The record is a 103-nucleotide sequence from Neobacillus rhizophilus, which matches "SAM riboswitch aptamer (S box leader)" in Rfam.
RNA sequence: UUCUUAUCAAGAGCGGCGGAGGGACUGGCCCGUUGAAGCCCGGCAACCGGUAGACCACACGGUGCUAAAUCCAGCAGAGCAAACAGGCUCUGAAAGAUAAGAA
Numbered sequence: 001u002u003c004u005u006a007u008c009a010a011g012a013g014c015g016g017c018g019g020a021g022g023g024a025c026u027g028g029c030c031c032g033u034u035g036a037a038g039c040c041c042g043g044c045a046a047c048c049g050g051u052a053g054a055c056c057a058c059a060c061g062g063u064g065c066u067a068a069a070u071c072c073a074g075c076a077g078a079g080c081a082a083a084c085a086g087g088c089u090c091u092g093a094a095a096g097a098u099a100a101g102a103a
Base pairs, nucleotide, nucleotide: 001103002102003101004100005099006098007097008096013041015040016039017038021031022030023029025074026073027072028071042066043065044064045063047062048061049058070095075092076091077090078089079088080087
It scores 92 bits against the family's covariance model. Pairs were carried over by alignment from the consensus structure, which is taken from published work.